[Rfam]
RNA sequence: UCUCGCCCCCCUCUCUCCCAACCCUUGUACCAGUGCCAAAUGUGUUCCCCCACUGGUACAGAGGAUGGAAGGGAGGG
Number, nucleotide and partner (000 for none) at each position: 001u000002c000003u000004c000005g000006c000007c000008c000009c000010c076011c075012u074013c000014u072015c071016u069017c068018c067019c000020a000021a000022c000023c061024c000025u000026u060027g059028u058029a057030c056031c055032a054033g000034u000035g000036c000037c000038a000039a000040a000041u000042g000043u000044g000045u000046u000047c000048c000049c000050c000051c000052a000053c000054u032055g031056g030057u029058a028059c027060a026061g023062a000063g000064g000065a000066u000067g018068g017069a016070a000071g015072g014073g000074a012075g011076g010077g000
Shown here is a 77-nucleotide RNA sequence from Podarcis muralis, a member of the family "mir-150 microRNA precursor family". It scores 63 bits against the family's covariance model. The family's consensus secondary structure was predicted with RNAalifold. Its family is annotated with miRNA-mediated post-transcriptional gene silencing and RISC complex in the Gene Ontology. The organism belongs to Podarcis, within Eukaryota.